The record is a 75-nucleotide RNA from Ornithorhynchus anatinus, which matches "Small nucleolar RNA SNORD59" in Rfam. Rfam classes the family as a C/D-box small nucleolar RNA. For this family Rfam cites "Purified box C/D snoRNPs are able to reproduce site-specific 2'-O-methylation of target RNA in vitro" (Galardi et al., Mol Cell Biol, 2002). NCBI's taxonomy places the organism under Eukaryota, Bilateria, Vertebrata, Tetrapoda, Ornithorhynchus. Rfam links the family to the GO terms nucleolus and RNA processing.
RNA sequence: UCUCCGCUGAUGACCUUUUCCCAAUGACUUUCGUUCUUCUGAGCUUGCUGAAGCCGCUCUUAGGGUCUGAGGAGA
Numbered sequence: 001u002c003u004c005c006g007c008u009g010a011u012g013a014c015c016u017u018u019u020c021c022c023a024a025u026g027a028c029u030u031u032c033g034u035u036c037u038u039c040u041g042a043g044c045u046u047g048c049u050g051a052a053g054c055c056g057c058u059c060u061u062a063g064g065g066u067c068u069g070a071g072g073a074g075a
Stems, first nucleotide, its partner, number of pairs: 001075003005071001